Rfam assigns this 34-nucleotide RNA sequence from Chryseobacterium hagamense to the family "DUF805b RNA".
By type it is a cis-regulatory element.
Clan: DUF805 clan.
The organism belongs to Chryseobacterium, within Bacteria.

[Rfam]
Nucleotides: 034
Base pairs, nucleotide, nucleotide: 003020004019005018010033011032012031
Number, partner (000 for none) and nucleotide at each position: 001000a002000c003020u004019g005018c006000g007000g008000a009000a010033g011032c012031c013000g014000a015000a016000a017000a018005g019004c020003a021000a022000a023000a024000u025000a026000g027000a028000g029000u030000a031012g032011g033010c034000g